[Rfam]
RNA sequence: GAGUUAUUGUAUAUUGCGAGGUUAAGUCGUUAGACGCAGCCGUAGUGAAAGCGAGCCUGAAUAGGGCGUCAGUAGUAUGCAAUAGACGCGAAACCAAGUGAUCUACGCCUGUCCAGGGUGAAGCUUUGGUAACACAAAGUGGAGGCCCGAACCAGUAUGGGUUGAAAACCGUUUGGAUGAGGUGGGCGUAGGGGUGAAAGGCCAAUCAAACUUGGAGAUAGCUCGUU
Numbered sequence: 001g002a003g004u005u006a007u008u009g010u011a012u013a014u015u016g017c018g019a020g021g022u023u024a025a026g027u028c029g030u031u032a033g034a035c036g037c038a039g040c041c042g043u044a045g046u047g048a049a050a051g052c053g054a055g056c057c058u059g060a061a062u063a064g065g066g067c068g069u070c071a072g073u074a075g076u077a078u079g080c081a082a083u084a085g086a087c088g089c090g091a092a093a094c095c096a097a098g099u100g101a102u103c104u105a106c107g108c109c110u111g112u113c114c115a116g117g118g119u120g121a122a123g124c125u126u127u128g129g130u131a132a133c134a135c136a137a138a139g140u141g142g143a144g145g146c147c148c149g150a151a152c153c154a155g156u157a158u159g160g161g162u163u164g165a166a167a168a169c170c171g172u173u174u175g176g177a178u179g180a181g182g183u184g185g186g187c188g189u190a191g192g193g194g195u196g197a198a199a200g201g202c203c204a205a206u207c208a209a210a211c212u213u214g215g216a217g218a219u220a221g222c223u224c225g226u227u
Base pairs, nucleotide, nucleotide: 005084006083007082008081009080010079011078012077013076014075015074016073017072020041021040022039023038026035027034028033045052046051055067056066057065058064087225088224090222094215095214096213097212098211099210103191104190105189106188107187108186109185110184111183112182113181114179116148117147118146119145123140124139125138126137127136128135152176153175154174157172158171159170160169193203194202195201
RNA: Bacterial large subunit ribosomal RNA, nucleotides 587 to 813
Organism: Desulfurispirillum indicum